[Rfam]
RNA: Metazoan signal recognition particle RNA
RNA sequence: GCCGGGAGUCGUGGCGAGCUCCUGUAAUCCAGCUACUUGGAGGCUUGAACUGGAGGACGGUUUGAGGACGGGGGUUCUGCUCUCGGGCGUGCCAUGUCGAUCGGGUGUCCACACUAAGCGCGGCAUCAAUAUGGGGAUCCUGGGGGAGCUUGGGAUCUCCAGGUUGUCUAAGGAGGGACGAACCGGCCCAGGGGGGAAACCCAGCAGGCAAAAGUCCCCGUGUUGUGCAGUAGUGGGAUCGCACCCGUGAAUGGGCGUUCGUUGGUAGCCCGUCCGAUACAGUCGGACCCAGUUCUUU
Numbered sequence: 001g002c003c004g005g006g007a008g009u010c011g012u013g014g015c016g017a018g019c020u021c022c023u024g025u026a027a028u029c030c031a032g033c034u035a036c037u038u039g040g041a042g043g044c045u046u047g048a049a050c051u052g053g054a055g056g057a058c059g060g061u062u063u064g065a066g067g068a069c070g071g072g073g074g075u076u077c078u079g080c081u082c083u084c085g086g087g088c089g090u091g092c093c094a095u096g097u098c099g100a101u102c103g104g105g106u107g108u109c110c111a112c113a114c115u116a117a118g119c120g121c122g123g124c125a126u127c128a129a130u131a132u133g134g135g136g137a138u139c140c141u142g143g144g145g146g147a148g149c150u151u152g153g154g155a156u157c158u159c160c161a162g163g164u165u166g167u168c169u170a171a172g173g174a175g176g177g178a179c180g181a182a183c184c185g186g187c188c189c190a191g192g193g194g195g196g197a198a199a200c201c202c203a204g205c206a207g208g209c210a211a212a213a214g215u216c217c218c219c220g221u222g223u224u225g226u227g228c229a230g231u232a233g234u235g236g237g238a239u240c241g242c243a244c245c246c247g248u249g250a251a252u253g254g255g256c257g258u259u260c261g262u263u264g265g266u267a268g269c270c271c272g273u274c275c276g277a278u279a280c281a282g283u284c285g286g287a288c289c290c291a292g293u294u295c296u297u298u
Stems, first nucleotide, its partner, number of pairs: 001044003004023006028041003047295007058285005066275007077268005084261006092254004097249001102247007109237002112235005118228009127166004132161013167173002175218005186209003193202003